This 117-nucleotide sequence from Chitinophaga agri belongs to the Rfam family "Group II catalytic intron D1-D4-2". Taxonomically the source falls in Chitinophaga (Bacteria, Bacteroidota, Chitinophagia, Chitinophagales). Pairs were carried over by alignment from the consensus structure.

RNA sequence: GGUGGCAGGCCCACCGUAAGGGAUGACAGGCAUACCUUACAAACCACCCUAUGAUGCUUUGGACGAAAGGAAAAGGUGUUGAGCGAUAGGGGAAAAGGCAGAAUUAAUCUGUCAGGU
Numbered sequence: 001g002g003u004g005g006c007a008g009g010c011c012c013a014c015c016g017u018a019a020g021g022g023a024u025g026a027c028a029g030g031c032a033u034a035c036c037u038u039a040c041a042a043a044c045c046a047c048c049c050u051a052u053g054a055u056g057c058u059u060u061g062g063a064c065g066a067a068a069g070g071a072a073a074a075g076g077u078g079u080u081g082a083g084c085g086a087u088a089g090g091g092g093a094a095a096a097g098g099c100a101g102a103a104u105u106a107a108u109c110u111g112u113c114a115g116g117u
Stems, first nucleotide, its partner, number of pairs: 001015005016040006023033003045116001047091006053080002056077003060073001097113006